[Rfam]
Record summary
Rfam assigns this 209-nucleotide RNA to the family "Group II catalytic intron D1-D4-3". Rfam 15.1 lists 4,274 matches to the family in 1,585 species. For this family Rfam cites "The ins and outs of group II introns" (Bonen and Vogel, Trends Genet, 2001). It scores 34 bits against the family's covariance model. The pairing is the family consensus, mapped onto this sequence.
Nucleotides: 209
Base pairs, nucleotide, nucleotide: 001016003014004013005012028209029208030207031206032205035203039198041196042195043194044193045190046189047188048187049186063185064184065183066182067181068180074177075176076175078173080171087155088154089153092149093148094147095146
Number, partner (000 for none) and nucleotide at each position: 001016a002000a003014u004013c005012c006000a007000g008000u009000g010000a011000a012005g013004g014003a015000c016001u017000c018000g019000c020000u021000g022000a023000a024000g025000g026000a027000a028209a029208c030207u031206g032205c033000u034000u035203c036000a037000a038000a039198u040000c041196c042195u043194g044193g045190c046189u047188u048187c049186a050000u051000g052000c053000a054000a055000a056000u057000u058000a059000g060000g061000a062000a063185g064184u065183u066182u067181g068180a069000a070000c071000a072000a073000g074177g075176a076175a077000a078173a079000g080171g081000c082000c083000u084000a085000u086000a087155g088154g089153u090000a091000a092149g093148u094147u095146c096000a097000g098000a099000u100000c101000u102000u103000c104000a105000g106000a107000u108000u109000a110000c111000c112000c113000c114000a115000a116000a117000a118000u119000a120000c121000c122000u123000u124000u125000u126000g127000u128000u129000g130000u131000a132000u133000c134000u135000u136000a137000g138000u139000u140000u141000a142000c143000c144000c145000a146095g147094a148093g149092c150000u151000a152000a153089a154088c155087c156000c157000c158000u159000u160000g161000c162000u163000c164000u165000g166000c167000u168000u169000u170000c171080u172000a173078u174000u175076u176075u177074u178000a179000c180068u181067c182066a183065a184064a185063c186049u187048g188047a189046a190045g191000u192000g193044u194043c195042a196041g197000c198039a199000g200000a201000a202000g203035g204000u205032g206031u207030g208029g209028u